[Rfam]
RNA sequence: UGGAGGCCUGAGAAGGUAAGGCAGUUAUUCACUGUACUGGGCCUUAUUGGUUAUAGCCUCCAAGAUUAAAAUAGUGCAAAAGCAAACCAGGUUCCUCUCCCAACUUGAGGGGAAACAAGGCUGCUUUUGCAUACAUGGU
Number, nucleotide and partner (000 for none) at each position: 001u000002g061003g060004a059005g058006g057007c000008c000009u000010g000011a000012g000013a000014a000015g048016g047017u046018a045019a044020g043021g042022c039023a038024g037025u036026u000027a000028u000029u000030c000031a000032c000033u000034g000035u000036a025037c024038u023039g022040g000041g000042c021043c020044u019045u018046a017047u016048u015049g000050g000051u000052u000053a000054u000055a000056g000057c006058c005059u004060c003061c002062a000063a000064g000065a000066u000067u000068a000069a000070a000071a000072u000073a000074g000075u000076g000077c000078a000079a000080a000081a000082g130083c129084a000085a000086a127087c000088c000089a000090g000091g122092u000093u000094c000095c000096u000097c000098u114099c000100c112101c111102a000103a000104c109105u000106u000107g000108a000109g104110g000111g101112g100113a000114a098115a000116c000117a000118a000119g000120g000121c000122u091123g000124c000125u000126u000127u086128u000129g083130c082131a000132u000133a000134c000135a000136u000137g000138g000139u000
A member of the RNA family "Small nucleolar RNA SNORA47" from Sphenodon punctatus, 139 nucleotides long. Its family is annotated with nucleolus and RNA processing in the Gene Ontology. A search with the family's covariance model found it, with a score of 68 bits. The family's consensus secondary structure was predicted with WAR. A reference for the family is Huttenhofer et al. (2001), "RNomics: an experimental approach that identifies 201 candidates for novel, small, non-messenger RNAs in mouse", EMBO J.